[Rfam]
RNA: Small nucleolar RNA R21
Organism: Striga asiatica
RNA sequence: AUUCCCUGUGAAGAUCUUAUAUUGGAAUAAAAGUAGUGGCCUGAUACACAUUGAUGAUAUUUUAUUCCGAGGGAGU
Numbered sequence: 001a002u003u004c005c006c007u008g009u010g011a012a013g014a015u016c017u018u019a020u021a022u023u024g025g026a027a028u029a030a031a032a033g034u035a036g037u038g039g040c041c042u043g044a045u046a047c048a049c050a051u052u053g054a055u056g057a058u059a060u061u062u063u064a065u066u067c068c069g070a071g072g073g074a075g076u
Stems, first nucleotide, its partner, number of pairs: 001076006